Shown here is a 76-nucleotide RNA from Callithrix jacchus, a member of the family "mir-320 microRNA precursor family". The literature on the family includes a 2006 paper in Genome Res by Berezikov et al., "Many novel mammalian microRNA candidates identified by extensive cloning and RAKE analysis". Its family is annotated with negative regulation of gene expression, cellular response to glucose stimulus and miRNA-mediated post-transcriptional gene silencing in the Gene Ontology. Taxonomically the source falls in Callithrix (Eukaryota, Metazoa, Chordata, Euteleostomi).
RNA sequence: AGGGAUCUCGGCCUUCUCUUCCUGGUUCUUCCUGGAGUCGAGAGAAGGUGGGUUGAGAGGAUGGUGAAAAAAAAAA
Numbered sequence: 001a002g003g004g005a006u007c008u009c010g011g012c013c014u015u016c017u018c019u020u021c022c023u024g025g026u027u028c029u030u031c032c033u034g035g036a037g038u039c040g041a042g043a044g045a046a047g048g049u050g051g052g053u054u055g056a057g058a059g060g061a062u063g064g065u066g067a068a069a070a071a072a073a074a075a076a
Base pairs, nucleotide, nucleotide: 014059015058016057017056018055021052022051023050024049029044030043031042033040034039